The family of this 89-nucleotide RNA from Thelazia callipaeda is "mir-81 microRNA precursor family". The base pairs follow the family's consensus structure, which was predicted with RNAalifold. On this family, see Lau et al., Science 2001: "An abundant class of tiny RNAs with probable regulatory roles in Caenorhabditis elegans". Rfam 15.1 lists 68 matches to the family in 54 species. Rfam links the family to the GO terms miRNA-mediated post-transcriptional gene silencing and RISC complex. It scores 66 bits against the family's covariance model.

[Rfam]
Nucleotides: 089
Stems, first nucleotide, its partner, number of pairs: 009081004016074003020070005027063006035056003038049002
Number, partner (000 for none) and nucleotide at each position: 001000c002000u003000g004000g005000u006000a007000a008000a009081g010080g011079c012078a013000g014000u015000a016074g017073g018072c019000c020070u021069u022068c023067a024066c025000c026000g027063u028062g029061a030060u031059c032058u033000g034000c035056a036055g037054a038049a039048u040000g041000c042000u043000g044000a045000u046000a047000u048039a049038u050000u051000g052000a053000a054037u055036c056035u057000g058032a059031g060030a061029u062028c063027a064000u065000g066024g067023u068022g069021a070020a071000a072018g073017c074016u075000a076000u077000u078012u079011g080010c081009c082000u083000u084000g085000c086000a087000c088000c089000a